[Rfam]
This 244-nucleotide RNA from Streptomyces sp. NRRL F-4489 belongs to the Rfam family "Streptomyces sRNA 4677". By type it is a small RNA. Located in the intergenic region between anti-sigma factor SCO4677 gene and a putative regulatory protein gene SCO4676. scr4677 expression requires the SCO4677 activity and scr4677 sRNA itself seem to affect the levels of the SCO4676-associated transcripts. It scores 112 bits against the family's covariance model.
RNA sequence: AGUCCCGGUGCGGCGCGACGUAAAGGCUUUAAGGACCCGGGGAAGUACCUCACCCAACCCCACCGGCCUCCCGGGCGUCCCGCCACCCACACGGGUGACGUGCGCCAACUCAGCUGGAUUUCCGGGAGGUUGAUGGGCAUAUGCUCGCCGCGUCACGUGCACAAGUGCACACAUGCUUCGGCCCCCGGCCGGGACUGGCAUCCCGAACGAGGGCCUAACCAACAAGGAAGAAAGCACCUUCCCG
Numbered sequence: 001a002g003u004c005c006c007g008g009u010g011c012g013g014c015g016c017g018a019c020g021u022a023a024a025g026g027c028u029u030u031a032a033g034g035a036c037c038c039g040g041g042g043a044a045g046u047a048c049c050u051c052a053c054c055c056a057a058c059c060c061c062a063c064c065g066g067c068c069u070c071c072c073g074g075g076c077g078u079c080c081c082g083c084c085a086c087c088c089a090c091a092c093g094g095g096u097g098a099c100g101u102g103c104g105c106c107a108a109c110u111c112a113g114c115u116g117g118a119u120u121u122c123c124g125g126g127a128g129g130u131u132g133a134u135g136g137g138c139a140u141a142u143g144c145u146c147g148c149c150g151c152g153u154c155a156c157g158u159g160c161a162c163a164a165g166u167g168c169a170c171a172c173a174u175g176c177u178u179c180g181g182c183c184c185c186c187g188g189c190c191g192g193g194a195c196u197g198g199c200a201u202c203c204c205g206a207a208c209g210a211g212g213g214c215c216u217a218a219c220c221a222a223c224a225a226g227g228a229a230g231a232a233a234g235c236a237c238c239u240u241c242c243c244g
Base pairs, nucleotide, nucleotide: 007223009221010220016073017072084097085096086095087094088093113149115147116146117145180215181214182213183212184211186209187208191204192203193202194201226242227241228240229239230238